[Rfam]
RNA sequence: CAAACGCAAAUUUAAAUCCGCACAUGCACCGUCACGGACAGCGGGGUGCCUCAUGAGAAUGGGGUUGCUGCUCUGGGGUGUAUGGAGGCCCAAC
Numbered sequence: 001c002a003a004a005c006g007c008a009a010a011u012u013u014a015a016a017u018c019c020g021c022a023c024a025u026g027c028a029c030c031g032u033c034a035c036g037g038a039c040a041g042c043g044g045g046g047u048g049c050c051u052c053a054u055g056a057g058a059a060u061g062g063g064g065u066u067g068c069u070g071c072u073c074u075g076g077g078g079u080g081u082a083u084g085g086a087g088g089c090c091c092a093a094c
Stems, first nucleotide, its partner, number of pairs: 023084008035075004040069004048065005

A member of the RNA family "t44 RNA" from Ectothiorhodosinus mongolicus, 94 nucleotides long. From the family's description: This family consists of a number of bacterial RNA genes of between 135 and 170 bases in length. The t44 gene has been identified in several species of enteric bacteria but homologs have also been identified in Pseudomonas and Coxiella species. The t44 gene is found between the map and rpsB genes in all species in the full alignment apart from Shigella flexneri. The function of this RNA is unknown. It scores 69 bits against the family's covariance model.